The record is a 165-nucleotide sequence, which matches "RT-16 RNA" in Rfam. Pairs were carried over by alignment from the consensus structure, which is taken from published work. It is one of the family's seed sequences.
RNA sequence: UUUGUAUUUCCCUGAGCAAGAAAUAUAAAUAGGACUACACGUCAAAAUAUUAGCACAUUAUUAAGAUUUAUUUUAAGUCAUAAAAUUCAGUAGAAACAAUUAGUAACAAUUCUAGAAAUGUGAAAUUUGAAUCUACGGUGGCAAUUGAUAUUUUGGCUACUAGUU
Dot-bracket structure: ((((((((((.........))))))))))...........((((((((((......(.(..(...........................(((((..(((.(....((............))...).)))..)))))....)..).).))))))))))........